[Rfam]
RNA sequence: CAGUUAAAACGACCGAAGUCAAACCUCGGCCUUUAGGUUGGGCGGCCUAGUCUUCAUUGAUUAAGCUCGUCUUAACCAAGGCUUACAUCUGGCAGUGGCAUGGCUUUCGGGUUAUGUCUACCGGUCAGAUCUUUACCAUGAGCAAAUCAGAGUGUUUAAAGCAGGCUCAAUGGCUUGAAUGUGUUAGCAUGGAAUAAUGAAAUAUGGCUUGGGUCCUUAUUUCGUUGGUUUAUACGACCUUUGCAAUGAUAAAUAGGAACGGUUGGGGGGAUUUGUAUUUGGCCGCUAGAGGUGAAAUUCUUAGAUUGGCUAAAGACACACUACUGCGAAAGCAUUUUACCCAGGACGUUUCCGUUGAUCAAGGUCUAAAGUUAGGGGAUCGAAGACGAUUAGAUACCGUCGUAGUCCUAACCAUAAACUAUGCCGACUAGGGAUCGGGUUUGCUCUAUGGCUUACUCGGAACCUUAGCGAAAGUAAAGUGUUUGGGCUCUGGGGGGAGUAUGGUACGCAAGACUGAAACUUAAAGGAAU
Numbered sequence: 001c002a003g004u005u006a007a008a009a010c011g012a013c014c015g016a017a018g019u020c021a022a023a024c025c026u027c028g029g030c031c032u033u034u035a036g037g038u039u040g041g042g043c044g045g046c047c048u049a050g051u052c053u054u055c056a057u058u059g060a061u062u063a064a065g066c067u068c069g070u071c072u073u074a075a076c077c078a079a080g081g082c083u084u085a086c087a088u089c090u091g092g093c094a095g096u097g098g099c100a101u102g103g104c105u106u107u108c109g110g111g112u113u114a115u116g117u118c119u120a121c122c123g124g125u126c127a128g129a130u131c132u133u134u135a136c137c138a139u140g141a142g143c144a145a146a147u148c149a150g151a152g153u154g155u156u157u158a159a160a161g162c163a164g165g166c167u168c169a170a171u172g173g174c175u176u177g178a179a180u181g182u183g184u185u186a187g188c189a190u191g192g193a194a195u196a197a198u199g200a201a202a203u204a205u206g207g208c209u210u211g212g213g214u215c216c217u218u219a220u221u222u223c224g225u226u227g228g229u230u231u232a233u234a235c236g237a238c239c240u241u242u243g244c245a246a247u248g249a250u251a252a253a254u255a256g257g258a259a260c261g262g263u264u265g266g267g268g269g270g271a272u273u274u275g276u277a278u279u280u281g282g283c284c285g286c287u288a289g290a291g292g293u294g295a296a297a298u299u300c301u302u303a304g305a306u307u308g309g310c311u312a313a314a315g316a317c318a319c320a321c322u323a324c325u326g327c328g329a330a331a332g333c334a335u336u337u338u339a340c341c342c343a344g345g346a347c348g349u350u351u352c353c354g355u356u357g358a359u360c361a362a363g364g365u366c367u368a369a370a371g372u373u374a375g376g377g378g379a380u381c382g383a384a385g386a387c388g389a390u391u392a393g394a395u396a397c398c399g400u401c402g403u404a405g406u407c408c409u410a411a412c413c414a415u416a417a418a419c420u421a422u423g424c425c426g427a428c429u430a431g432g433g434a435u436c437g438g439g440u441u442u443g444c445u446c447u448a449u450g451g452c453u454u455a456c457u458c459g460g461a462a463c464c465u466u467a468g469c470g471a472a473a474g475u476a477a478a479g480u481g482u483u484u485g486g487g488c489u490c491u492g493g494g495g496g497g498a499g500u501a502u503g504g505u506a507c508g509c510a511a512g513a514c515u516g517a518a519a520c521u522u523a524a525a526g527g528a529a530u
Stems, first nucleotide, its partner, number of pairs: 001492003009489001011366004018359003256353004260348002263345002267342003271338001274318002278314008289300003326333002371412006381405001385401004423488003427480002430465003435460006443452003468475002494522003503515003507512001
This 530-nucleotide part of an RNA from Apophysomyces sp. BC1034 belongs to the Rfam family "Eukaryotic small subunit ribosomal RNA".
The family's consensus secondary structure is taken from published work.
It scores 1714 bits against the family's covariance model.
Lineage of the source: Eukaryota > Opisthokonta > Mucoromycetes > Mucoraceae > Apophysomyces.